SAM-I/IV (S-adenosyl methionine) riboswitch aptamer: a 108-nucleotide sequence from Rhizorhabdus wittichii.
[Rfam]
RNA sequence: AUGCAGCAUCAAGAGUUGGGCCGGCGCCCAACGCCAACCUGCCGAUCCGGGCAAGGUGGCGCUCCCGCGAGGGGGGAUGUGGCCGAUCCGGCAACCAAGCGGACCAAG
Numbered sequence: 001a002u003g004c005a006g007c008a009u010c011a012a013g014a015g016u017u018g019g020g021c022c023g024g025c026g027c028c029c030a031a032c033g034c035c036a037a038c039c040u041g042c043c044g045a046u047c048c049g050g051g052c053a054a055g056g057u058g059g060c061g062c063u064c065c066c067g068c069g070a071g072g073g074g075g076g077a078u079g080u081g082g083c084c085g086a087u088c089c090g091g092c093a094a095c096c097a098a099g100c101g102g103a104c105c106a107a108g
Stems, first nucleotide, its partner, number of pairs: 006080005015032001017031001018029004033060003038056003041052003046103004082092004
Lineage of the source: Bacteria > Pseudomonadota > Alphaproteobacteria > Sphingomonadales > Rhizorhabdus wittichii.